[Rfam]
RNA sequence: UGAGAAAAAGCCAAACCCGUCGUGAGGCGGGGACGGAAAGCCAACGGAUCUUUAAUUUAAAGAUGGCCGGGUUGCCUCCA
Numbered sequence: 001u002g003a004g005a006a007a008a009a010g011c012c013a014a015a016c017c018c019g020u021c022g023u024g025a026g027g028c029g030g031g032g033a034c035g036g037a038a039a040g041c042c043a044a045c046g047g048a049u050c051u052u053u054a055a056u057u058u059a060a061a062g063a064u065g066g067c068c069g070g071g072u073u074g075c076c077u078c079c080a
Stems, first nucleotide, its partner, number of pairs: 001080001003077002011036002016031006034066001039073004045069003048064003
RNA: c-di-GMP-I-GGC riboswitch aptamer